[Rfam]
RNA: Actinobacteria sRNA Ms_IGR-7
RNA sequence: CGGAGAUGCACCUCCGAACUGGUCGAGUAGAAGCCUAGAGAACUCCUAUUCUCCCAGGUCAGAGCGCAUCUCCACUUUCAUGUCCAAGCCCUGGACCAGUCGUUGGCCGGUGGAUCGAG
Numbered sequence: 001c002g003g004a005g006a007u008g009c010a011c012c013u014c015c016g017a018a019c020u021g022g023u024c025g026a027g028u029a030g031a032a033g034c035c036u037a038g039a040g041a042a043c044u045c046c047u048a049u050u051c052u053c054c055c056a057g058g059u060c061a062g063a064g065c066g067c068a069u070c071u072c073c074a075c076u077u078u079c080a081u082g083u084c085c086a087a088g089c090c091c092u093g094g095a096c097c098a099g100u101c102g103u104u105g106g107c108c109g110g111u112g113g114a115u116c117g118a119g
Stems, first nucleotide, its partner, number of pairs: 002073008011064001013062001016060002019057004025051004030046001032044002101117002103114002106111001